[Rfam]
RNA sequence: AAUCGGCGUACAUCACCGGGAACGUGUUCCCACCGAGGUGCCGAGAGGGAUGAGCCUCGGCAACAGCGGCGAAAGCCGGAAAGCCGGAACAUCAAGGGAACGAGUAGGGUUUGGUAGGCGUAAGCUCGAAGAACCCGGACUCA
Numbered sequence: 001a002a003u004c005g006g007c008g009u010a011c012a013u014c015a016c017c018g019g020g021a022a023c024g025u026g027u028u029c030c031c032a033c034c035g036a037g038g039u040g041c042c043g044a045g046a047g048g049g050a051u052g053a054g055c056c057u058c059g060g061c062a063a064c065a066g067c068g069g070c071g072a073a074a075g076c077c078g079g080a081a082a083g084c085c086g087g088a089a090c091a092u093c094a095a096g097g098g099a100a101c102g103a104g105u106a107g108g109g110u111u112u113g114g115u116a117g118g119c120g121u122a123a124g125c126u127c128g129a130a131g132a133a134c135c136c137g138g139a140c141u142c143a
Stems, first nucleotide, its partner, number of pairs: 003044006011038001013036002018031005047055001057087005067078004102142004107136006117126003